RNA sequence: UCUAAAACUCAAGAUAUGAGCUGAACACUGAAUAAUAUCUGGGCUGCAGGACAGAUUCAGACUUCUCUGUUGUUGCUACAAUUUGGACUUGAACACGGCCUUUUUAAAUCUUGGACUUCUCAUGAAAGUUUUAGGCCUAUGUCUUAGCUUUCUAUC
Numbered sequence: 001u002c003u004a005a006a007a008c009u010c011a012a013g014a015u016a017u018g019a020g021c022u023g024a025a026c027a028c029u030g031a032a033u034a035a036u037a038u039c040u041g042g043g044c045u046g047c048a049g050g051a052c053a054g055a056u057u058c059a060g061a062c063u064u065c066u067c068u069g070u071u072g073u074u075g076c077u078a079c080a081a082u083u084u085g086g087a088c089u090u091g092a093a094c095a096c097g098g099c100c101u102u103u104u105u106a107a108a109u110c111u112u113g114g115a116c117u118u119c120u121c122a123u124g125a126a127a128g129u130u131u132u133a134g135g136c137c138u139a140u141g142u143c144u145u146a147g148c149u150u151u152c153u154a155u156c
Stems, first nucleotide, its partner, number of pairs: 003154002006151002008147002011145008020136001021134005027129003035123002041119003045115001048112004054105002060099001062098002068092001072088003